[Rfam]
This 78-nucleotide sequence from Laticauda laticaudata belongs to the Rfam family "Mammalian CPEB3 ribozyme". A search with the family's covariance model found it, with a score of 79 bits. The family's consensus secondary structure is taken from published work.
Nucleotides: 078
Base pairs, nucleotide, nucleotide: 013046014045015044016043017042018041021078022077023076024075025074026073027072028040029039030038050067051066052065053064054063055062
Number, partner (000 for none) and nucleotide at each position: 001000u002000c003000a004000c005000a006000a007000u008000u009000a010000c011000a012000g013046g014045g015044g016043g017042c018041c019000a020000u021078a022077g023076a024075a025074g026073g027072a028040g029039c030038g031000u032000u033000c034000a035000c036000g037000u038030c039029g040028c041018g042017g043016u044015c045014c046013c047000u048000g049000u050067c051066a052065g053064g054063u055062a056000u057000c058000u059000g060000u061000u062055u063054a064053c065052c066051u067050g068000c069000g070000a071000a072027u073026c074025c075024u076023u077022c078021u